[Rfam]
Nucleotides: 119
Base pairs, nucleotide, nucleotide: 001082002081003080004079009040012038013037014036015035016034021032022031041068042067043066046064047063048062050058051057085108086107089104092101093100094099
Number, partner (000 for none) and nucleotide at each position: 001082g002081a003080u004079c005000a006000u007000g008000a009040a010000g011000c012038c013037c014036a015035a016034c017000g018000c019000c020000a021032a022031g023000c024000c025000c026000c027000c028000u029000g030000g031022c032021u033000c034016g035015u036014u037013g038012g039000u040009u041068a042067g043066c044000a045000a046064c047063c048062g049000c050058g051057u052000a053000g054000c055000g056000c057051a058050u059000a060000c061000a062048c063047g064046g065000u066043g067042c068041u069000c070000c071000c072000a073000g074000g075000g076000g077000a078000a079004g080003a081002u082001c083000g084000g085108c086107c087000a088000c089104u090000g091000u092101g093100g094099c095000a096000c097000c098000c099094g100093c101092c102000c103000g104089g105000u106000c107086g108085g109000a110000a111000g112000a113000u114000u115000g116000c117000g118000a119000c